Source information
leuA-Halobacteria RNA: a 53-nucleotide RNA sequence.

[Rfam]
RNA sequence: UGCGCCCGAGGAUAGAGUAAGUCGCCGCAAGGCGGCUGGCCGAGAAAUUCGGC
Numbered sequence: 001u002g003c004g005c006c007c008g009a010g011g012a013u014a015g016a017g018u019a020a021g022u023c024g025c026c027g028c029a030a031g032g033c034g035g036c037u038g039g040c041c042g043a044g045a046a047a048u049u050c051g052g053c
Stems, first nucleotide, its partner, number of pairs: 020037007
The sequence is in the family's curated seed alignment.